RNA sequence: UUUUUUACGGAGUGUCUCUUCUAACCCUAAAUGUGGGCGCCUUCCUGUACUAUAUACGUUUACUGUUUUGUCUCUUGCUUUCAAUAGACGACAGGAAGUGUUCGAAUAUCGGUAGGCAUAUGGCAAACAAAAAAGCAUAGAGAUUCACUCUGUGAUGCUCACUCUUCCCGGUGGAAUCACCAUGAACAUGCCGUGGUCAGCAUGGCUGCCACGAAGAGUUCGUCUCUGCUGCUCUGGUGAUUUUCUCUGGAAAAAACUGUUGUUGAGCAGAACAAACUGAGCUGGGUAACUGGCGGAUCUAAACUAUGAUCCUGGUCGAAAGCCCGCGCUCAAACAUUU
Number, nucleotide and partner (000 for none) at each position: 001u000002u000003u000004u000005u155006u154007a153008c152009g151010g150011a149012g148013u147014g146015u143016c142017u141018c140019u000020u000021c000022u000023a000024a000025c000026c000027c000028u000029a000030a000031a000032u000033g000034u000035g000036g000037g000038c000039g000040c000041c098042u097043u096044c095045c094046u000047g000048u000049a000050c000051u000052a000053u000054a000055u000056a000057c090058g089059u088060u087061u086062a085063c000064u083065g082066u000067u000068u000069u000070g000071u000072c000073u000074c135075u134076u000077g000078c000079u133080u132081u131082c065083a064084a000085u062086a061087g060088a059089c058090g057091a000092c000093a000094g045095g044096a043097a042098g041099u000100g000101u000102u000103c000104g000105a000106a000107u000108a000109u000110c000111g000112g000113u000114a000115g000116g000117c000118a000119u000120a000121u000122g000123g000124c000125a000126a000127a000128c000129a000130a000131a081132a080133a079134a075135g074136c000137a000138u000139a000140g018141a017142g016143a015144u000145u000146c014147a013148c012149u011150c010151u009152g008153u007154g006155a005156u000157g000158c267159u266160c265161a264162c000163u000164c000165u000166u000167c000168c000169c250170g000171g248172u000173g246174g245175a244176a000177u000178c239179a238180c237181c236182a235183u000184g000185a000186a000187c000188a000189u000190g000191c000192c213193g212194u211195g210196g209197u000198c208199a207200g206201c205202a000203u000204g000205g201206c200207u199208g198209c196210c195211a194212c193213g192214a000215a227216g226217a225218g224219u000220u000221c000222g000223u000224c218225u217226c216227u215228g000229c000230u000231g000232c000233u000234c000235u182236g181237g180238u179239g178240a000241u000242u000243u000244u175245c174246u173247c000248u171249g000250g169251a000252a000253a000254a000255a000256a000257c000258u000259g000260u000261u000262g000263u000264u161265g160266a159267g158268c000269a000270g000271a000272a000273c000274a000275a000276a000277c000278u000279g331280a330281g329282c328283u000284g325285g324286g323287u321288a000289a000290c000291u318292g317293g316294c315295g000296g311297a310298u309299c308300u000301a000302a000303a000304c000305u000306a000307u000308g299309a298310u297311c296312c000313u000314g000315g294316u293317c292318g291319a000320a000321a287322g000323c286324c285325c284326g000327c000328g282329c281330u280331c279332a000333a000334a000335c000336a000337u000338u000339u000
The family of this 339-nucleotide RNA sequence from Coregonus sp. 'balchen' is "Vertebrate telomerase RNA". The family's RNA type in Rfam is non-coding RNA gene. Its family is annotated with telomerase activity, telomere maintenance via telomerase and telomerase catalytic core complex in the Gene Ontology. Its Rfam clan is "Telomerase clan". Taxonomically the source falls in Coregonus (Eukaryota, Opisthokonta, Osteoglossocephalai, Salmoniformes).